Description: The record is a 103-nucleotide RNA from Eremothecium gossypii, which matches "Small nucleolar RNA R38" in Rfam. snoR38 is a C/D box small nucleolar RNA conserved across yeast, human, Arabidopsis and rice. It is encoded in the intron of elongation factor-1 gamma in both pombe and cerevisiae. snoR38 guides the methylation of 2'-O-ribose sites in 28S rRNA. Rfam 15.1 lists 2,295 matches to the family in 1,305 species. Its family is annotated with nucleolus and RNA processing in the Gene Ontology. It is annotated as a C/D-box small nucleolar RNA. The family's consensus secondary structure was predicted with PFOLD. The literature on the family includes a 1995 paper in Trends Biochem Sci by Bachellerie et al., "Antisense snoRNAs: a family of nucleolar RNAs with long complementarities to rRNA". Lineage of the source: Eukaryota > Fungi > Ascomycota > Saccharomycetaceae > Eremothecium gossypii.

[Rfam]
RNA sequence: CCCUAGUGUGAUGAGAAAACCUUUCGAAAAAACAGUUAUCCCUGUCUGAAUGGGCAUAAUAUCUGGUUGCACAUGUGUCGAGAGACCAUACUCUGAUUUAGAG
Numbered sequence: 001c002c003c004u005a006g007u008g009u010g011a012u013g014a015g016a017a018a019a020c021c022u023u024u025c026g027a028a029a030a031a032a033c034a035g036u037u038a039u040c041c042c043u044g045u046c047u048g049a050a051u052g053g054g055c056a057u058a059a060u061a062u063c064u065g066g067u068u069g070c071a072c073a074u075g076u077g078u079c080g081a082g083a084g085a086c087c088a089u090a091c092u093c094u095g096a097u098u099u100a101g102a103g
Stems, first nucleotide, its partner, number of pairs: 001103001003101004